RNA: Small nucleolar RNA snoR53Y
RNA sequence: GUUCCCUAUGAUGUUUCUGUAUGAACCAUGCUAAUGCUGAUAAUUCCGUGAUUGAUCCUUUCUCUAUUCAUUUAACUGAGGGAAUU
Numbered sequence: 001g002u003u004c005c006c007u008a009u010g011a012u013g014u015u016u017c018u019g020u021a022u023g024a025a026c027c028a029u030g031c032u033a034a035u036g037c038u039g040a041u042a043a044u045u046c047c048g049u050g051a052u053u054g055a056u057c058c059u060u061u062c063u064c065u066a067u068u069c070a071u072u073u074a075a076c077u078g079a080g081g082g083a084a085u086u
Base pairs, nucleotide, nucleotide: 001085002084003083004082005081006080007079